[Rfam]
RNA sequence: GCUUGGCUUAGUUAGGGGGCAUAAAUUGAUUUGGACCCAAAUCUGGUCUUCAGCUAAGGCCUUUUUGAGGGGACUCUUUUUCACCAUCAGUUGUCCUCUAAGCCACCUUGGACAUUU
Numbered sequence: 001g002c003u004u005g006g007c008u009u010a011g012u013u014a015g016g017g018g019g020c021a022u023a024a025a026u027u028g029a030u031u032u033g034g035a036c037c038c039a040a041a042u043c044u045g046g047u048c049u050u051c052a053g054c055u056a057a058g059g060c061c062u063u064u065u066u067g068a069g070g071g072g073a074c075u076c077u078u079u080u081u082c083a084c085c086a087u088c089a090g091u092u093g094u095c096c097u098c099u100a101a102g103c104c105a106c107c108u109u110g111g112a113c114a115u116u117u
Stems, first nucleotide, its partner, number of pairs: 004021002007018003034048004054111006064102004069098006077090001
RNA: Small nucleolar RNA U19